[Rfam]
RNA sequence: CUUAUCCUCAUCAGCAAACUUCUGAAUACAAAAGCUUUUUUUAUAACUCUCAAUCACUUAUUUACAUCAAAACAGAUACCAACAAUCCCACACUAAGUCUCUAAUCACAAUCACACCGAAAAACAAACAUUUAAAAACGAUUCUUCAAAAUUUCUAGGAAAAAAUCUGCAAAUGUACUUAUAUUAUUUCAACUAGAGAAGCCUCCUCCUGAAGUUUCUGGUAGUUGAUUGAUAAGUACGUACGAGAAGACCGACACCAAUGCCAAGACCAACACAGACGCCAAGUCCAAU
Numbered sequence: 001c002u003u004a005u006c007c008u009c010a011u012c013a014g015c016a017a018a019c020u021u022c023u024g025a026a027u028a029c030a031a032a033a034g035c036u037u038u039u040u041u042u043a044u045a046a047c048u049c050u051c052a053a054u055c056a057c058u059u060a061u062u063u064a065c066a067u068c069a070a071a072a073c074a075g076a077u078a079c080c081a082a083c084a085a086u087c088c089c090a091c092a093c094u095a096a097g098u099c100u101c102u103a104a105u106c107a108c109a110a111u112c113a114c115a116c117c118g119a120a121a122a123a124c125a126a127a128c129a130u131u132u133a134a135a136a137a138c139g140a141u142u143c144u145u146c147a148a149a150a151u152u153u154c155u156a157g158g159a160a161a162a163a164a165u166c167u168g169c170a171a172a173u174g175u176a177c178u179u180a181u182a183u184u185a186u187u188u189c190a191a192c193u194a195g196a197g198a199a200g201c202c203u204c205c206u207c208c209u210g211a212a213g214u215u216u217c218u219g220g221u222a223g224u225u226g227a228u229u230g231a232u233a234a235g236u237a238c239g240u241a242c243g244a245g246a247a248g249a250c251c252g253a254c255a256c257c258a259a260u261g262c263c264a265a266g267a268c269c270a271a272c273a274c275a276g277a278c279g280c281c282a283a284g285u286c287c288a289a290u
Base pairs, nucleotide, nucleotide: 011211012210013209014208023064024063025062026061027060028059034049094133095132096131097130098129100127102125105121137206139204140203143200144199145198146197153196154195156193157192167176168175169174213281215279216277217276218275219274220272221271223268224267225266227260228259229258230257235254236253238252239251242248

This 290-nucleotide sequence from Brassica oleracea belongs to the Rfam family "TeloSII non coding RNA 33".
Rfam describes the family as follows. Located downstream of the TeloSII elements. These elements have been shown to coordinate the expression of protein-coding gene related to ribosome biogenesis throughout the cell cycle in Arabidopsis.
The literature on the family includes a 2015 paper in BMC Genomics by Qu et al., "Promoter-based identification of novel non-coding RNAs reveals the presence of dicistronic snoRNA-miRNA genes in Arabidopsis thaliana".